[Rfam]
A member of the RNA family "Small nucleolar RNA SNORA14" from Upupa epops, 135 nucleotides long. ACA14 is a member of the H/ACA class of snoRNA that guide the sites of modification of uridines to pseudouridines.
RNA sequence: CUGCAUUCUUAACCCUCCUGGUAGCUCUGCUAUUAGCUUCCAGGGUAAGACUGAAUGCAAGAGAAAACUGUUGGUUAGUCUAAAAUGUAGAGCUCUUUUCCCAUAGCUCUUCAUUAUUUCACAUCUUCAACAUUU
Numbered sequence: 001c002u003g004c005a006u007u008c009u010u011a012a013c014c015c016u017c018c019u020g021g022u023a024g025c026u027c028u029g030c031u032a033u034u035a036g037c038u039u040c041c042a043g044g045g046u047a048a049g050a051c052u053g054a055a056u057g058c059a060a061g062a063g064a065a066a067a068c069u070g071u072u073g074g075u076u077a078g079u080c081u082a083a084a085a086u087g088u089a090g091a092g093c094u095c096u097u098u099u100c101c102c103a104u105a106g107c108u109c110u111u112c113a114u115u116a117u118u119u120c121a122c123a124u125c126u127u128c129a130a131c132a133u134u135u
Stems, first nucleotide, its partner, number of pairs: 003058004009049002016045006023038003062135003069129002073125002084115004089110002092107002098103001